[Rfam]
Nucleotides: 094
Base pairs, nucleotide, nucleotide: 003023005021007019008018009017010016011015031059032058038055039054040053041052042051043050065083066082067081068080069079070078071077072076
Number, partner (000 for none) and nucleotide at each position: 001000c002000u003023g004000a005021g006000a007019c008018c009017c010016u011015g012000u013000c014000u015011c016010a017009g018008g019007g020000c021005c022000c023003c024000g025000g026000c027000a028000g029000c030000a031059u032058c033000a034000g035000g036000g037000g038055g039054u040053c041052u042051c043050c044000c045000u046000u047000u048000u049000u050043g051042g052041a053040g054039a055038c056000u057000a058032g059031a060000c061000a062000u063000c064000c065083c066082u067081g068080u069079u070078u071077a072076a073000u074000a075000u076072u077071u078070a079069a080068a081067c082066a083065g084000c085000a086000g087000u088000g089000u090000u091000c092000c093000c094000a
Rfam assigns this 94-nucleotide sequence from Peromyscus maniculatus to the family "G-CSF factor stem-loop destabilising element (SLDE)". The family's RNA type in Rfam is cis-regulatory element. Rfam's curators write: This family represents the granulocyte colony-stimulating factor stem-loop destabilising element (G-CSF SLDE). G-CSF is secreted by fibroblasts and endothelial cells in response to the inflammatory mediators interleukin-1 (IL-1) and tumour necrosis factor alpha and by activated macrophages. The synthesis of G-CSF is regulated both transcriptionally and through control of mRNA stability. The match comes from Rfam's covariance-model search (88 bits). The family has 16 seed sequences and 132 matches in Rfam 15.1. Pairs were carried over by alignment from the consensus structure, which is taken from published work.